msiK RNA: a 60-nucleotide RNA sequence from Neomicrococcus aestuarii.
Lineage of the source: Bacteria > Bacillati > Actinomycetota > Actinomycetes > Neomicrococcus.
[Rfam]
RNA sequence: GCUGAGACUCCUAUCACUACGGAUCGUCGGGCACGUACCUGCCCGUGAAGGGUUGUUUUU
Dot-bracket structure: .........(((.(((...........((((((......))))))))).)))........